[Rfam]
Description:
This 180-nucleotide RNA from Nocardioides sp. dk884 belongs to the Rfam family "Actinobacteria sRNA Ms_IGR-5".
RNA sequence: ACACGGGAAAGGAGGUGGUCCGAACAGUGAAGAGCUUCAGGACGCGUGAGGUGGCUGCCCGCUAGCAGCCGCGCCGCUGCGGCGAAUCCACCGCAGCCACCCGACCCGCAGGCGCGCCGGACUCCGUCCCCCCGGCCCGGCUCCCGGAAUCCCCGGGGCCACGCCUGCGGGUCGCCCCAU
Numbered sequence: 001a002c003a004c005g006g007g008a009a010a011g012g013a014g015g016u017g018g019u020c021c022g023a024a025c026a027g028u029g030a031a032g033a034g035c036u037u038c039a040g041g042a043c044g045c046g047u048g049a050g051g052u053g054g055c056u057g058c059c060c061g062c063u064a065g066c067a068g069c070c071g072c073g074c075c076g077c078u079g080c081g082g083c084g085a086a087u088c089c090a091c092c093g094c095a096g097c098c099a100c101c102c103g104a105c106c107c108g109c110a111g112g113c114g115c116g117c118c119g120g121a122c123u124c125c126g127u128c129c130c131c132c133c134g135g136c137c138c139g140g141c142u143c144c145c146g147g148a149a150u151c152c153c154c155g156g157g158g159c160c161a162c163g164c165c166u167g168c169g170g171g172u173c174g175c176c177c178c179a180u
Base pairs, nucleotide, nucleotide: 014059015058016057017056018055019054060084061083062082063079064078065077066076068074069073102174103173104172105171106170107169108168109167110166111165112164113163114162116136117135118134119133120132

The literature on the family includes a 2013 paper in RNA by Li et al., "Identification of small RNAs in Mycobacterium smegmatis using heterologous Hfq". Pairs were carried over by alignment from the consensus structure. It is annotated as a small RNA. The match comes from Rfam's covariance-model search (94 bits).